RNA: TPP riboswitch aptamer (THI element)
RNA sequence: UAAUAGGAACAGGGGGGCUGGCGAAGGCCGGCUGAGAUUAAACCCGUAAUUCGGUUUUGACCCUUUAAACCUGAUCUGGGUAAUGCCAGCGUAGGGAUGAACACAGGAUUUUUAU
Numbered sequence: 001u002a003a004u005a006g007g008a009a010c011a012g013g014g015g016g017g018c019u020g021g022c023g024a025a026g027g028c029c030g031g032c033u034g035a036g037a038u039u040a041a042a043c044c045c046g047u048a049a050u051u052c053g054g055u056u057u058u059g060a061c062c063c064u065u066u067a068a069a070c071c072u073g074a075u076c077u078g079g080g081u082a083a084u085g086c087c088a089g090c091g092u093a094g095g096g097a098u099g100a101a102c103a104c105a106g107g108a109u110u111u112u113u114a115u
Stems, first nucleotide, its partner, number of pairs: 007102001010099001011064004016058001017032005040056002043053001070095004076089004